[Rfam]
RNA sequence: CUCCUCGAAAUAGCUUUAGGGCUAGCCUCGAUUAUGAUUAACGGAGGUAGAGCACUGAAUUGCCUAGGGGGCGUCAAAGCUUACCGAAGCAUAUCAAACUCCGAAUGCCGUAUAAUUAAAGAUCGGGAGUCAGACUAUACGAGAUAAGUUGGAUAGUCAAAAGGGAAAGAGCCCAGACCACCGGCUAAGGUCCCCAAGUGCGUGUUAAGUGGAAAAGGAUGUGGGAUUUCGAAGACAACUAGGAUGUUGGCUUAGAAGCAGCCAUACAUUCAAAGAGUGCGUAAUAGCUCACUAGUCGAGAGGUCCUGCGCCGAAAAUGUCCGGGGCUAAAACACGCCACCGAAGCUGUGGAACCAUAAUUAUAUGGUUGGUAGAGGAGCAUUCUUAAUGCGACGAAGCUGUACCGAAAGGAGCAGUGGAGUAUUAAGAAGAGAGAAU
Number, nucleotide and partner (000 for none) at each position: 001c379002u378003c377004c376005u375006c374007g000008a000009a000010a000011u024012a023013g022014c021015u020016u000017u000018a000019g000020g015021g014022c013023u012024a011025g000026c129027c127028u126029c125030g124031a123032u122033u121034a000035u120036g117037a116038u115039u114040a113041a111042c110043g109044g108045a000046g000047g000048u000049a000050g102051a100052g099053c000054a000055c000056u096057g095058a094059a000060u000061u091062g090063c089064c000065u000066a000067g085068g084069g082070g081071g080072c079073g000074u000075c000076a000077a000078a000079g072080c071081u070082u069083a000084c068085c067086g000087a000088a000089g063090c062091a061092u000093a000094u058095c057096a056097a000098a000099c052100u051101c000102c050103g000104a000105a000106u000107g000108c044109c043110g042111u041112a000113u040114a039115a038116u037117u036118a000119a000120a035121g033122a032123u031124c030125g029126g028127g027128a000129g026130u000131c000132a000133g158134a157135c156136u155137a154138u153139a000140c151141g150142a149143g000144a000145u000146a000147a000148g000149u142150u141151g140152g000153a138154u137155a136156g135157u134158c133159a000160a000161a000162a000163g174164g173165g172166a000167a000168a000169g000170a000171g000172c165173c164174c163175a000176g000177a000178c351179c350180a349181c348182c000183g347184g346185c345186u000187a000188a000189g341190g340191u339192c000193c000194c000195c000196a000197a000198g338199u000200g337201c336202g335203u334204g333205u332206u000207a000208a000209g000210u000211g000212g000213a000214a000215a000216a000217g312218g311219a000220u000221g309222u308223g307224g306225g305226a304227u303228u302229u301230c300231g000232a000233a000234g000235a000236c000237a000238a296239c295240u294241a293242g292243g000244a269245u268246g267247u000248u000249g263250g262251c261252u000253u000254a000255g000256a000257a000258g000259c000260a000261g251262c250263c249264a000265u000266a000267c246268a245269u244270u274271c000272a000273a000274a270275g290276a000277g000278u000279g288280c287281g000282u000283a000284a000285u000286a000287g280288c279289u000290c275291a000292c242293u241294a240295g239296u238297c000298g000299a000300g230301a229302g228303g227304u226305c225306c224307u223308g222309c221310g000311c218312c217313g000314a000315a000316a000317a000318u000319g000320u000321c000322c000323g000324g000325g000326g000327c000328u000329a000330a000331a000332a205333c204334a203335c202336g201337c200338c198339a191340c190341c189342g000343a000344a000345g185346c184347u183348g181349u180350g179351g178352a369353a368354c367355c366356a365357u364358a363359a000360u000361u000362a000363u358364a357365u356366g355367g354368u353369u352370g000371g000372u000373a000374g006375a005376g004377g003378a002379g001380c433381a000382u430383u429384c428385u427386u426387a425388a424389u423390g422391c421392g000393a000394c000395g000396a000397a000398g417399c416400u415401g414402u413403a000404c411405c410406g000407a000408a000409a000410g405411g404412a000413g402414c401415a400416g399417u398418g000419g000420a000421g391422u390423a389424u388425u387426a386427a385428g384429a383430a382431g000432a000433g380434a000435g000436a000437a000438u000